[Rfam]
RNA sequence: CCCAGCGCUGCGCGCUGGGCUGAUAUCUUGCGCUCUUUCAGAGCU
Numbered sequence: 001c002c003c004a005g006c007g008c009u010g011c012g013c014g015c016u017g018g019g020c021u022g023a024u025a026u027c028u029u030g031c032g033c034u035c036u037u038u039c040a041g042a043g044c045u
Base pairs, nucleotide, nucleotide: 001019002018003017004016005015006014007013008012032044033043034042035041036040
The record is a 45-nucleotide RNA sequence from Hoylesella marshii, which matches "Acido-Lenti-1 RNA" in Rfam. The match comes from Rfam's covariance-model search (50 bits). Rfam classes the family as a small RNA.